This 80-nucleotide RNA sequence from Clostridium chauvoei belongs to the Rfam family "skipping-rope RNA". Lineage of the source: Bacteria > Bacillati > Clostridia > Clostridiaceae > Clostridium chauvoei. Rfam classes the family as a small RNA.
[Rfam]
RNA sequence: GAUUAUUGAGGUGAGAAAUGGCUCCUCAUACGCUGCUUGCAGUAAACAGAGAUGCAGGAUACGCCGCCCUGCCUGUAAUC
Numbered sequence: 001g002a003u004u005a006u007u008g009a010g011g012u013g014a015g016a017a018a019u020g021g022c023u024c025c026u027c028a029u030a031c032g033c034u035g036c037u038u039g040c041a042g043u044a045a046a047c048a049g050a051g052a053u054g055c056a057g058g059a060u061a062c063g064c065c066g067c068c069c070u071g072c073c074u075g076u077a078a079u080c
Stems, first nucleotide, its partner, number of pairs: 001080006008073001011029005019066004031049001032043004054072005